ZMP/ZTP riboswitch aptamer (pfl RNA motif): an 81-nucleotide sequence from Kribbella solani.
RNA sequence: AAGGGGCAGCGACUGGCGCGCUGAAGGUGGAGAACCACCGGGGAGCGAAACCCGUCGGCACCGUGCGCCUGGGUGCCGUCG
Numbered sequence: 001a002a003g004g005g006g007c008a009g010c011g012a013c014u015g016g017c018g019c020g021c022u023g024a025a026g027g028u029g030g031a032g033a034a035c036c037a038c039c040g041g042g043g044a045g046c047g048a049a050a051c052c053c054g055u056c057g058g059c060a061c062c063g064u065g066c067g068c069c070u071g072g073g074u075g076c077c078g079u080c081g
Stems, first nucleotide, its partner, number of pairs: 004053003009046002013042002015069005027038004058076005

Background:
Rfam links the family to the GO terms regulation of purine nucleotide biosynthetic process and one-carbon metabolic process. The family's consensus secondary structure is taken from published work.